Shown here is an 81-nucleotide RNA sequence from methanotrophic endosymbiont of Bathymodiolus puteoserpentis, a member of the family "c-di-GMP-I riboswitch aptamer".
The base pairs follow the family's consensus structure, which is taken from published work.
The organism belongs to Gammaproteobacteria, within Bacteria.
[Rfam]
RNA sequence: AAUUUUUACUGCCACACCUGCUGUGAAGUAGGCUCGGAAAGCUUCAGGUCUUUUGUUGUAAAAGAUAGCUGAGUUAUGUGA
Numbered sequence: 001a002a003u004u005u006u007u008a009c010u011g012c013c014a015c016a017c018c019u020g021c022u023g024u025g026a027a028g029u030a031g032g033c034u035c036g037g038a039a040a041g042c043u044u045c046a047g048g049u050c051u052u053u054u055g056u057u058g059u060a061a062a063a064g065a066u067a068g069c070u071g072a073g074u075u076a077u078g079u080g081a
Base pairs, nucleotide, nucleotide: 012037013036017032018031019030020029021028022027040075041074042073043072045071046070047069048066049065050064051063052062053061054060